About this RNA: A member of the RNA family "HNH endonuclease-associated RNA and ORF (HEARO) RNA" from Desulfobacter latus, 249 nucleotides long. A search with the family's covariance model found it, with a score of 104 bits. The organism belongs to Desulfobacter, within Bacteria.

RNA sequence: GUCAACAACCCCUCGGCUGAAGACCGAGGGGCUUGUGGGGAAGCCCGCAAGCCCGGUUGAUUAGCCUCAGCCCUGCGUUAUUGGUAAGCGGGGCUACGUUACCGUAGAAUACAUAGGUACUUCGGGAUACAGAUCCGACCAAUCGUCCACACGUCCCGAACGUUACGGUCAGUGUUUAAACAUCUGUGAGGGUAGCAGAAGUGAUGCUGAUAUUAAAAACCUGCGGAUAACAUUGGCAAUGUGGAUCAC
Numbered sequence: 001g002u003c004a005a006c007a008a009c010c011c012c013u014c015g016g017c018u019g020a021a022g023a024c025c026g027a028g029g030g031g032c033u034u035g036u037g038g039g040g041a042a043g044c045c046c047g048c049a050a051g052c053c054c055g056g057u058u059g060a061u062u063a064g065c066c067u068c069a070g071c072c073c074u075g076c077g078u079u080a081u082u083g084g085u086a087a088g089c090g091g092g093g094c095u096a097c098g099u100u101a102c103c104g105u106a107g108a109a110u111a112c113a114u115a116g117g118u119a120c121u122u123c124g125g126g127a128u129a130c131a132g133a134u135c136c137g138a139c140c141a142a143u144c145g146u147c148c149a150c151a152c153g154u155c156c157c158g159a160a161c162g163u164u165a166c167g168g169u170c171a172g173u174g175u176u177u178a179a180a181c182a183u184c185u186g187u188g189a190g191g192g193u194a195g196c197a198g199a200a201g202u203g204a205u206g207c208u209g210a211u212a213u214u215a216a217a218a219a220c221c222u223g224c225g226g227a228u229a230a231c232a233u234u235g236g237c238a239a240u241g242u243g244g245a246u247c248a249c
Stems, first nucleotide, its partner, number of pairs: 001061006010031002012028002017022001032051008064237003069095008098231004103226001107222001117166002121160008168211009180202002183199004187194002